[Rfam]
About this RNA: The record is a 295-nucleotide sequence from Betacoronavirus erinacei, which matches "Betacoronavirus 5'UTR" in Rfam. For this family Rfam cites "The structure and functions of coronavirus genomic 3' and 5' ends" (Yang and Leibowitz, Virus Res, 2015). The pairing is the family consensus, mapped onto this sequence. Lineage of the source: Viruses > Orthornavirae > Pisoniviricetes > Cornidovirineae > Hedgehog coronavirus 1. The first 150 to 200 nucleotides within the 5' UTR of betacoronaviruses are highly structured and shown to be conserved on a structure level among betacoronaviruses. It has been predicted to contain 3 conserved stem-loops (SL1, SL2 and SL4). The match comes from Rfam's covariance-model search (176 bits). It is annotated as a cis-regulatory element. The family is grouped with related families in Rfam's "Coronavirus 5' UTR".
RNA sequence: GAUUAAAGAGAAUAGCAUAGCUAUCCCUCUCUCUCCGUUCUCUUGUAGAACUCUUGUUUUAACGAACUUAAUUAAAAGCCCUUAUACUUUGUCUAGGUAGUGGCAUUAGUGCCAGACCUAUGCAUUGUAGUGGGUUUAGUAAAAACUAAAUUCAUAUUUUUCAUUUAGAGCUGCGUGUCUCAAGUGCGUCUCGGUCACAAUAUACUGUUCCGUCAGGUGCGUGACAAUCCGGGGCUCAUCAUGUCUUCCGCGACUGGUGAGGGUUCUCAAGGUGCGAGGGCCACGUAUAGAGCAG
Numbered sequence: 001g002a003u004u005a006a007a008g009a010g011a012a013u014a015g016c017a018u019a020g021c022u023a024u025c026c027c028u029c030u031c032u033c034u035c036c037g038u039u040c041u042c043u044u045g046u047a048g049a050a051c052u053c054u055u056g057u058u059u060u061a062a063c064g065a066a067c068u069u070a071a072u073u074a075a076a077a078g079c080c081c082u083u084a085u086a087c088u089u090u091g092u093c094u095a096g097g098u099a100g101u102g103g104c105a106u107u108a109g110u111g112c113c114a115g116a117c118c119u120a121u122g123c124a125u126u127g128u129a130g131u132g133g134g135u136u137u138a139g140u141a142a143a144a145a146c147u148a149a150a151u152u153c154a155u156a157u158u159u160u161u162c163a164u165u166u167a168g169a170g171c172u173g174c175g176u177g178u179c180u181c182a183a184g185u186g187c188g189u190c191u192c193g194g195u196c197a198c199a200a201u202a203u204a205c206u207g208u209u210c211c212g213u214c215a216g217g218u219g220c221g222u223g224a225c226a227a228u229c230c231g232g233g234g235c236u237c238a239u240c241a242u243g244u245c246u247u248c249c250g251c252g253a254c255u256g257g258u259g260a261g262g263g264u265u266c267u268c269a270a271g272g273u274g275c276g277a278g279g280g281c282c283a284c285g286u287a288u289a290g291a292g293c294a295g
Stems, first nucleotide, its partner, number of pairs: 007030004012024005037051005077136005085129003090124003094120005174188003200218002205216003235261007243254003